[Rfam]
RNA sequence: GGCGGUGACAACGAGAGAGAGCACGCCGGUGCGGCGGUCACGGUGAGCCGGCCCGCGGCGGCGUACCUGCGUGCUUUCUCCCGUUGUCACUGCC
Numbered sequence: 001g002g003c004g005g006u007g008a009c010a011a012c013g014a015g016a017g018a019g020a021g022c023a024c025g026c027c028g029g030u031g032c033g034g035c036g037g038u039c040a041c042g043g044u045g046a047g048c049c050g051g052c053c054c055g056c057g058g059c060g061g062c063g064u065a066c067c068u069g070c071g072u073g074c075u076u077u078c079u080c081c082c083g084u085u086g087u088c089a090c091u092g093c094c
Stems, first nucleotide, its partner, number of pairs: 006089005012083002016079002019076001021074006028067005
RNA: MIR535 microRNA precursor family